A member of the RNA family "mir-8834 microRNA precursor family" from Vulpes vulpes, 103 nucleotides long. Gene Ontology terms of the family: RISC complex and miRNA-mediated post-transcriptional gene silencing. Lineage of the source: Eukaryota > Metazoa > Eumetazoa > Chordata > Vulpes. The base pairs follow the family's consensus structure, which was predicted with RNAalifold.

RNA sequence: AGGAGCAACCUCAGUGGCAGAGCCAGCUCUGGAGCCCUGGAUUCAGCUUCCAUAGUAACUAUGGAGCUCUUGGUCUGCAGGGGCCUGGAUGCUCUGGGGGGUG
Numbered sequence: 001a002g003g004a005g006c007a008a009c010c011u012c013a014g015u016g017g018c019a020g021a022g023c024c025a026g027c028u029c030u031g032g033a034g035c036c037c038u039g040g041a042u043u044c045a046g047c048u049u050c051c052a053u054a055g056u057a058a059c060u061a062u063g064g065a066g067c068u069c070u071u072g073g074u075c076u077g078c079a080g081g082g083g084c085c086u087g088g089a090u091g092c093u094c095u096g097g098g099g100g101g102u103g
Base pairs, nucleotide, nucleotide: 002095003094004093005092006091007090009082010081011080016075017074018073020071021070022069025068026067027066028065029064030063031062033060037055038054039053